RNase MRP: a 240-nucleotide RNA sequence from Rhynchospora breviuscula. Lineage of the source: Eukaryota > Streptophyta > Streptophytina > Petrosaviidae > Rhynchospora. Rfam describes the family as follows. RNase MRP is an enzymatically active ribonucleoprotein with two distinct roles in eukaryotes. It scores 87 bits against the family's covariance model. The base pairs follow the family's consensus structure, which is taken from published work. It is annotated as a ribozyme.
[Rfam]
RNA sequence: AAAACACAGGAAGCAGUGAUUGGGCCACAAGGCUCUGGAAAGUCCCCGGGCUUUGUACGCAGAGAUGCGGCCGCGAAAACGUGGUUAUCUCUUGGCAUCUGAUCCGCCUGCUUCGGUGGGGGGCUAAGACUGAGUGGAGCCCAAUGGGCCAGAUGUCAGAGGUCUAUAGCCGUUCUUACACAGUUAUUCACUGGGCUCAAUUCCUUGGGUCAACAGAACGGGGCUUACUCUUCUGUGUUC
Dot-bracket structure: ..(((((((((..((((((..((((......))))....[[[.[[[[..........((((....))))((((((....)))))).(((.....((((((.........((((.......((((..............))))...)))).))))))....)))........................)))))).((((((....)))))).........]]]]]]]....))))))))).